Shown here is a 72-nucleotide RNA sequence from Corynebacterium striatum, a member of the family "ctRNA". From the family's description: Rolling circle replication plasmids contain a number of mechanisms to maintain a low copy number. The base pairs follow the family's consensus structure, which is taken from published work. The family's RNA type in Rfam is antisense RNA. For this family Rfam cites "Control of rep gene expression in plasmid pGA1 from Corynebacterium glutamicum" (Venkova-Canova et al., J Bacteriol, 2003). It is one of the family's seed sequences.
Nucleotides: 072
Base pairs, nucleotide, nucleotide: 001032002031003030006026008024009023010022011021012020034064035063036062037061038060039059040058041057043056044055045054046053047052
Number, partner (000 for none) and nucleotide at each position: 001032g002031c003030u004000u005000u006026c007000u008024c009023c010022c011021a012020g013000a014000u015000u016000g017000u018000g019000g020012c021011u022010g023009g024008g025000u026006g027000a028000u029000a030003a031002g032001c033000g034064a035063g036062c037061g038060u039059c040058g041057a042000u043056c044055c045054g046053g047052u048000u049000g050000c051000c052047g053046c054045c055044g056043g057041u058040c059039g060038g061037c062036g063035c064034u065000c066000a067000u068000u069000u070000u071000u072000u